The family of this 600-nucleotide part of an RNA from Candidatus Carsonella ruddii is "Bacterial small subunit ribosomal RNA".
Taxonomically the source falls in Candidatus Carsonella (Bacteria, Pseudomonadati, Gammaproteobacteria, Halomonadaceae).
The sequence is in the family's curated seed alignment.
The base pairs follow the family's consensus structure, which is taken from published work.

RNA sequence: UGACGGGGGCUCGCACAAGCGGUGGAGCAUGUGGUUUAAUUCGAUACAACACGAAAAAUCUUACCUACUUUUGACAUCCAAAGAAUUUAUUAGAAAUAAUAACGCUUUUAAAGCUUUGAGACAGGUGCUGCAUGGCUGUCGUCAGCUCGUGUUGUGAAAUGUUGGGUUAAGUCCUAUAACGAGCGCAACCCUUAUCUUAUUUUACUAAAAUUAUCUUAGAACUAAUAAGAAACUGCCAAUGAUAAAUUGGAGGAAGGUGAGGACGACGUCAAGUCAUCAUGGCCCUUAUAAGUAGGGCUACACACGUGCUACAAUGAGUAUAACAAAAAGUAUACGCUAUAUGGUAACAUAAUGCUAAUCUUAUAAAAAUAUUCUUAGUUUGGAUUGAAAUCUGUAACUCGAUUUCAUGAAGUUGGAAUCGCUAGUAAUCGUAAAUCAGAAUGUUACGGUGAAUACGUUCUCGAGCCUUGUACACACCGCCCGUCACACCAUGGAAGUAACUUGUAUCAUAAGUAAUUUUAUUAUUACAACGGUAUGAUUUAUAACUGGGGUGAAGUCGUAACAAGGUAGCUGUAGGGGAACCUGUGGCUGGAUAAAAAU
Numbered sequence: 001u002g003a004c005g006g007g008g009g010c011u012c013g014c015a016c017a018a019g020c021g022g023u024g025g026a027g028c029a030u031g032u033g034g035u036u037u038a039a040u041u042c043g044a045u046a047c048a049a050c051a052c053g054a055a056a057a058a059u060c061u062u063a064c065c066u067a068c069u070u071u072u073g074a075c076a077u078c079c080a081a082a083g084a085a086u087u088u089a090u091u092a093g094a095a096a097u098a099a100u101a102a103c104g105c106u107u108u109u110a111a112a113g114c115u116u117u118g119a120g121a122c123a124g125g126u127g128c129u130g131c132a133u134g135g136c137u138g139u140c141g142u143c144a145g146c147u148c149g150u151g152u153u154g155u156g157a158a159a160u161g162u163u164g165g166g167u168u169a170a171g172u173c174c175u176a177u178a179a180c181g182a183g184c185g186c187a188a189c190c191c192u193u194a195u196c197u198u199a200u201u202u203u204a205c206u207a208a209a210a211u212u213a214u215c216u217u218a219g220a221a222c223u224a225a226u227a228a229g230a231a232a233c234u235g236c237c238a239a240u241g242a243u244a245a246a247u248u249g250g251a252g253g254a255a256g257g258u259g260a261g262g263a264c265g266a267c268g269u270c271a272a273g274u275c276a277u278c279a280u281g282g283c284c285c286u287u288a289u290a291a292g293u294a295g296g297g298c299u300a301c302a303c304a305c306g307u308g309c310u311a312c313a314a315u316g317a318g319u320a321u322a323a324c325a326a327a328a329a330g331u332a333u334a335c336g337c338u339a340u341a342u343g344g345u346a347a348c349a350u351a352a353u354g355c356u357a358a359u360c361u362u363a364u365a366a367a368a369a370u371a372u373u374c375u376u377a378g379u380u381u382g383g384a385u386u387g388a389a390a391u392c393u394g395u396a397a398c399u400c401g402a403u404u405u406c407a408u409g410a411a412g413u414u415g416g417a418a419u420c421g422c423u424a425g426u427a428a429u430c431g432u433a434a435a436u437c438a439g440a441a442u443g444u445u446a447c448g449g450u451g452a453a454u455a456c457g458u459u460c461u462c463g464a465g466c467c468u469u470g471u472a473c474a475c476a477c478c479g480c481c482c483g484u485c486a487c488a489c490c491a492u493g494g495a496a497g498u499a500a501c502u503u504g505u506a507u508c509a510u511a512a513g514u515a516a517u518u519u520u521a522u523u524a525u526u527a528c529a530a531c532g533g534u535a536u537g538a539u540u541u542a543u544a545a546c547u548g549g550g551g552u553g554a555a556g557u558c559g560u561a562a563c564a565a566g567g568u569a570g571c572u573g574u575a576g577g578g579g580a581a582c583c584u585g586u587g588g589c590u591g592g593a594u595a596a597a598a599a600u
Stems, first nucleotide, its partner, number of pairs: 001474002003471003007468007015458002019422005024312001026310008034301002040055004064296007077121002079118005087102006105113003124285002127283004133279002135274003138270001140268002145184006151160003163176004190262004195230007205219002209217002233253002236250005316374006328362003336355002341350003381412001386407007428450007477566001479563001482559002487553004492548003497543004502538007513528005568591010